The record is a 176-nucleotide RNA from Clostridium baratii, which matches "Lysine riboswitch aptamer" in Rfam. The organism belongs to Clostridium baratii, within Bacteria. The base pairs follow the family's consensus structure, which is taken from published work.
[Rfam]
RNA sequence: AGAAGAGAUAGAGGCGCGAGAUUCAAGAGUACUAUUACUGAGUUAAGCACAGUGAUGUAAUAGGAAAGGGGAUAUCGCCGAAGGAUACAGCUAAUGCUUUGAGGUUGUAAUCCUGGGUUUAUGGAUAAUAUUCAUAAGACUGUCACAGAUUGAAUUUGUGGUGAGCUAUCAUUCAA
Number, nucleotide and partner (000 for none) at each position: 001a000002g000003a000004a000005g000006a000007g170008a169009u168010a167011g166012a000013g000014g000015c000016g078017c077018g076019a075020g000021a073022u072023u071024c070025a000026a000027g000028a000029g000030u000031a000032c063033u062034a061035u060036u059037a058038c057039u000040g000041a000042g000043u000044u000045a000046a000047g000048c000049a000050c000051a000052g000053u000054g000055a000056u000057g038058u037059a036060a035061u034062a033063g032064g000065a000066a000067a000068g000069g000070g024071g023072a022073u021074a000075u019076c018077g017078c016079c000080g000081a000082a114083g113084g112085a111086u109087a108088c107089a106090g105091c104092u103093a000094a000095u000096g000097c000098u000099u000100u000101g000102a000103g092104g091105u090106u089107g088108u087109a086110a000111u085112c084113c083114u082115g141116g140117g000118u138119u137120u136121a135122u134123g133124g132125a131126u000127a000128a000129u000130a000131u125132u124133c123134a122135u121136a120137a119138g118139a000140c116141u115142g000143u161144c160145a159146c158147a157148g156149a155150u000151u000152g000153a000154a000155u149156u148157u147158g146159u145160g144161g143162u000163g000164a000165g000166c011167u010168a009169u008170c007171a000172u000173u000174c000175a000176a000